[Rfam]
RNA sequence: UAGCUUUGUCCUAAGUCAAAAUUGUUUAACUUUAACCAAGUUUAUAUAAGAGUAGAUUAAUAUCUACAAUACCAAAUAAAUGCACUAUCAAGAUAUAUUUCAUGGUGGAUUUAAUGAAACUAAUUUGAUCUUGUAGAUGUUGGUACUUUUUUCGAUAAAUUUGGUCAAAGUUAGACAGGUUUGACUUAGUACAAAGCUAG
Numbered sequence: 001u002a003g004c005u006u007u008g009u010c011c012u013a014a015g016u017c018a019a020a021a022u023u024g025u026u027u028a029a030c031u032u033u034a035a036c037c038a039a040g041u042u043u044a045u046a047u048a049a050g051a052g053u054a055g056a057u058u059a060a061u062a063u064c065u066a067c068a069a070u071a072c073c074a075a076a077u078a079a080a081u082g083c084a085c086u087a088u089c090a091a092g093a094u095a096u097a098u099u100u101c102a103u104g105g106u107g108g109a110u111u112u113a114a115u116g117a118a119a120c121u122a123a124u125u126u127g128a129u130c131u132u133g134u135a136g137a138u139g140u141u142g143g144u145a146c147u148u149u150u151u152u153c154g155a156u157a158a159a160u161u162u163g164g165u166c167a168a169a170g171u172u173a174g175a176c177a178g179g180u181u182u183g184a185c186u187u188a189g190u191a192c193a194a195a196g197c198u199a200g
Stems, first nucleotide, its partner, number of pairs: 005195005011189010022178005031169003035165001045155001048152005056144002059141010073127005
Shown here is a 200-nucleotide sequence from Dichanthelium oligosanthes, a member of the family "MIR1435 microRNA precursor family". Its family is annotated with RISC complex and miRNA-mediated post-transcriptional gene silencing in the Gene Ontology. The base pairs follow the family's consensus structure, which was predicted with RNAalifold.